[Rfam]
RNA: TPP riboswitch aptamer (THI element)
Organism: Clostridium sp. KNHs216
RNA sequence: AAAUACAACUGGGGGAACUCAUGGAGUUGAGAAGGUAAAACCUGACCCUUUGAACCUGUCGGCUAAUACCGAAGUAGGGAACGUUGAUUGAUUCGCGU
Numbered sequence: 001a002a003a004u005a006c007a008a009c010u011g012g013g014g015g016a017a018c019u020c021a022u023g024g025a026g027u028u029g030a031g032a033a034g035g036u037a038a039a040a041c042c043u044g045a046c047c048c049u050u051u052g053a054a055c056c057u058g059u060c061g062g063c064u065a066a067u068a069c070c071g072a073a074g075u076a077g078g079g080a081a082c083g084u085u086g087a088u089u090g091a092u093u094c095g096c097g098u
Stems, first nucleotide, its partner, number of pairs: 006086004011049004016043001017027004034042003055078004059072004